The family of this 48-nucleotide RNA sequence from Planococcus rifietoensis is "PreQ1 (pre queuosine) riboswitch aptamer".
About the family: This family is a bacterial riboswitch that binds to the metabolite preQ1, an intermediate in the biosynthesis of the modified nucleoside queuosine from GTP. One example of this riboswitch is located in the leader of the Bacillus subtilis ykvJKLM (queCDEF) operon which encodes four genes necessary for queuosine production.
Its family is annotated with queuosine biosynthetic process in the Gene Ontology.
RNA sequence: ACGGGAGAGGUUCAUAGCAUUCCACCCUCUAUAAAAAACUAUGGAUUU
Number, nucleotide and partner (000 for none) at each position: 001a000002c000003g000004g000005g000006a030007g029008a028009g027010g026011u000012u000013c000014a000015u041016a040017g000018c000019a000020u000021u000022c000023c000024a000025c000026c010027c009028u008029c007030u006031a000032u000033a000034a000035a000036a000037a000038a000039c000040u016041a015042u000043g000044g000045a000046u000047u000048u000